[Rfam]
RNA sequence: AACCACUGAUGACUCCUUAAUUUAAUUUCUGACACCUCGUAUGAGCUCUGCACAGCAGUGCCUGAUUUAUAAAUUACACUCUGAGGUUC
Dot-bracket structure: ((((...........................................((((...))))..........................)))).
Description:
The record is an 89-nucleotide sequence from Silurus meridionalis, which matches "Small nucleolar RNA SNORD60" in Rfam. The base pairs follow the family's consensus structure, which was predicted with PFOLD. The source organism's lineage runs through Eukaryota, Craniata, Vertebrata, Euteleostomi and Silurus. Clan: SNORD60 clan. For this family Rfam cites "Purified box C/D snoRNPs are able to reproduce site-specific 2'-O-methylation of target RNA in vitro" (Galardi et al., Mol Cell Biol, 2002). The family has 22 seed sequences and 825 matches in Rfam 15.1.